RNA: SAM-I/IV (S-adenosyl methionine) riboswitch aptamer
RNA sequence: AAAAAGCAUGGAGAGAGGGUAAAACCUCAGCAACCUAGAUAGCUAACUAAGGUGCUUAAAUAUGUGGUUUAUAACAAAAAAUAGCUUUU
Numbered sequence: 001a002a003a004a005a006g007c008a009u010g011g012a013g014a015g016a017g018g019g020u021a022a023a024a025c026c027u028c029a030g031c032a033a034c035c036u037a038g039a040u041a042g043c044u045a046a047c048u049a050a051g052g053u054g055c056u057u058a059a060a061u062a063u064g065u066g067g068u069u070u071a072u073a074a075c076a077a078a079a080a081a082u083a084g085c086u087u088u089u
Base pairs, nucleotide, nucleotide: 006065007064008063009062010061015028017027018026019025029056030055031054034052035051036050037048038047041087042086044084067075068074069073